RNA: mir-148/mir-152 microRNA precursor family
Organism: Tupaia belangeri
RNA sequence: AGGUUCUGUGAUACACUCAGACUCGGGCUCUGGAGCAGUCAGUGCAUGACAGAACUUGG
Dot-bracket structure: ((((((((.....((((..((((.............)))))))).....))))))))..